Rfam assigns this 64-nucleotide RNA from bacterium D16-59 to the family "pemK RNA". By type it is a cis-regulatory element. A search with the family's covariance model found it, with a score of 39 bits.
RNA sequence: AUAAUGAUACUUCUGAAUUUUUUAAUUAAAAUUCAGUCAUAUAAUGACGGUGCGAUACCGAUGU
Numbered sequence: 001a002u003a004a005u006g007a008u009a010c011u012u013c014u015g016a017a018u019u020u021u022u023u024a025a026u027u028a029a030a031a032u033u034c035a036g037u038c039a040u041a042u043a044a045u046g047a048c049g050g051u052g053c054g055a056u057a058c059c060g061a062u063g064u
Base pairs, nucleotide, nucleotide: 012061013036014035015034016033017032018031019030020029021028037047038046039045048060049059050058